6S-Flavo RNA: a 126-nucleotide RNA from Patiriisocius marinus.
RNA sequence: ACUCAACAUGAAUUCUUUUGAGAAGGGUGAAUUCUAGUUGUAAAAGCGUGCCGUUAUUCUGGUUUUCCAGUUUCAGACGGAUUCUUGAUCAGCUUAUUAGCCCUAAACUUUUUCUUACUGGAGUUU
Numbered sequence: 001a002c003u004c005a006a007c008a009u010g011a012a013u014u015c016u017u018u019u020g021a022g023a024a025g026g027g028u029g030a031a032u033u034c035u036a037g038u039u040g041u042a043a044a045a046g047c048g049u050g051c052c053g054u055u056a057u058u059c060u061g062g063u064u065u066u067c068c069a070g071u072u073u074c075a076g077a078c079g080g081a082u083u084c085u086u087g088a089u090c091a092g093c094u095u096a097u098u099a100g101c102c103c104u105a106a107a108c109u110u111u112u113u114c115u116u117a118c119u120g121g122a123g124u125u126u
Stems, first nucleotide, its partner, number of pairs: 024104005036094004044086003051080004
Taxonomically the source falls in Patiriisocius (Bacteria, Pseudomonadati, Flavobacteriia, Flavobacteriaceae).